The record is an 86-nucleotide RNA sequence from Solanum tuberosum, which matches "MIR8024 microRNA precursor family" in Rfam. Lineage of the source: Eukaryota > Magnoliopsida > Gunneridae > Pentapetalae > Solanum. It scores 85 bits against the family's covariance model.

[Rfam]
RNA sequence: UUGGAGGAUUUGAAGACUUCAACUUGCUUACUUGGAGGAUUUGAAGACCUCGACUUUCAUACUUGAAAAAUUUGAAGACUUCAACU
Numbered sequence: 001u002u003g004g005a006g007g008a009u010u011u012g013a014a015g016a017c018u019u020c021a022a023c024u025u026g027c028u029u030a031c032u033u034g035g036a037g038g039a040u041u042u043g044a045a046g047a048c049c050u051c052g053a054c055u056u057u058c059a060u061a062c063u064u065g066a067a068a069a070a071u072u073u074g075a076a077g078a079c080u081u082c083a084a085c086u
Base pairs, nucleotide, nucleotide: 001084002083003082004081005080006079009076010075011074012073013072014071018067019066020065021064025059026058032053033052034051035050037048